[Rfam]
RNA sequence: UCGUCUAAACGCGACUGGCGCAUAGGGUGGGAAAGACCACCGGGGAGCUGAAGAGCGAGAAGGCCGAGCGCCUGGGUCUUCACG
Numbered sequence: 001u002c003g004u005c006u007a008a009a010c011g012c013g014a015c016u017g018g019c020g021c022a023u024a025g026g027g028u029g030g031g032a033a034a035g036a037c038c039a040c041c042g043g044g045g046a047g048c049u050g051a052a053g054a055g056c057g058a059g060a061a062g063g064c065c066g067a068g069c070g071c072c073u074g075g076g077u078c079u080u081c082a083c084g
Stems, first nucleotide, its partner, number of pairs: 004054003009049001011048002015044002017072005027040004061079005
Rfam assigns this 84-nucleotide RNA sequence from Streptosporangium becharense to the family "ZMP/ZTP riboswitch aptamer (pfl RNA motif)". The base pairs follow the family's consensus structure, which is taken from published work. The source organism's lineage runs through Bacteria, Bacillati, Actinomycetota, Actinomycetes and Streptosporangium.